The family of this 69-nucleotide RNA from Actinokineospora fastidiosa is "ASpks TB sRNA". By type it is an antisense RNA.

RNA sequence: CUUGACCGAGCCCAGCCGCAGCGGCGCGCCUUCGCGCUGCCCGUAGGUGGCCAGCAGCGCGUGCGCCUC
Numbered sequence: 001c002u003u004g005a006c007c008g009a010g011c012c013c014a015g016c017c018g019c020a021g022c023g024g025c026g027c028g029c030c031u032u033c034g035c036g037c038u039g040c041c042c043g044u045a046g047g048u049g050g051c052c053a054g055c056a057g058c059g060c061g062u063g064c065g066c067c068u069c
Base pairs, nucleotide, nucleotide: 015025016024017023031065033063035059036058037054038053039052041050042049043048